[Rfam]
RNA sequence: GCCACUGUGCUGUAGCAGCACGUAAAUAUUGGAGUUAAGGCUCUCUGUGAUACCUCCAGUAUUGAUCGUGCUGCUGAAGCAAAGAUGAC
Numbered sequence: 001g002c003c004a005c006u007g008u009g010c011u012g013u014a015g016c017a018g019c020a021c022g023u024a025a026a027u028a029u030u031g032g033a034g035u036u037a038a039g040g041c042u043c044u045c046u047g048u049g050a051u052a053c054c055u056c057c058a059g060u061a062u063u064g065a066u067c068g069u070g071c072u073g074c075u076g077a078a079g080c081a082a083a084g085a086u087g088a089c
Base pairs, nucleotide, nucleotide: 001089003087004086006084013076014075015074016073017072018071019070020069021068022067023065025063026062027061028060029059030058031057032056033055034054

Background: Rfam assigns this 89-nucleotide RNA from Takifugu rubripes to the family "mir-15 microRNA precursor family". Gene Ontology terms of the family: RISC complex and miRNA-mediated post-transcriptional gene silencing. This family represents the related mir-15a and mir-15b sequences. Taxonomically the source falls in Takifugu (Eukaryota, Gnathostomata, Percomorphaceae, Tetraodontidae). The family is grouped with related families in Rfam's "mir-15 clan".